[Rfam]
RNA sequence: CUGUAGUGCAUUGUGGUUGCAUUGCAUGGGUGACCCGAAGGGUGCAAUGCGCCUUCAGUGCAAUACAG
Numbered sequence: 001c002u003g004u005a006g007u008g009c010a011u012u013g014u015g016g017u018u019g020c021a022u023u024g025c026a027u028g029g030g031u032g033a034c035c036c037g038a039a040g041g042g043u044g045c046a047a048u049g050c051g052c053c054u055u056c057a058g059u060g061c062a063a064u065a066c067a068g
Base pairs, nucleotide, nucleotide: 001068002067003066004065006064007062008061009060010059011058012057013056015054016053019050021048022047023046024045025044026043027042
Source information
The family of this 68-nucleotide RNA from Microcaecilia unicolor is "mir-33 microRNA precursor family". A search with the family's covariance model found it, with a score of 66 bits. Lineage of the source: Eukaryota > Metazoa > Chordata > Gymnophiona > Microcaecilia.